A member of the RNA family "L31-Coriobacteria ribosomal protein leader", 32 nucleotides long.
It is one of the family's seed sequences.
Rfam 15.1 lists 105 matches to the family in 84 species.
On this family, see Eckert and Weinberg, BMC Microbiol 2020: "Discovery of 20 novel ribosomal leader candidates in bacteria and archaea".
[Rfam]
RNA sequence: GCCUUGGUCGGAAACCAAGGCAUUAGAAGGAG
Dot-bracket structure: ((((((((.....))))))))...........
Numbered sequence: 001g002c003c004u005u006g007g008u009c010g011g012a013a014a015c016c017a018a019g020g021c022a023u024u025a026g027a028a029g030g031a032g
Stems, first nucleotide, its partner, number of pairs: 001021008